[Rfam]
RNA sequence: CGGGAAAGGCAGACUCCCCGUCAGACGGCUUACGUCCAAGCUCUGC
Numbered sequence: 001c002g003g004g005a006a007a008g009g010c011a012g013a014c015u016c017c018c019c020g021u022c023a024g025a026c027g028g029c030u031u032a033c034g035u036c037c038a039a040g041c042u043c044u045g046c
Stems, first nucleotide, its partner, number of pairs: 001020004006015001009046005024036004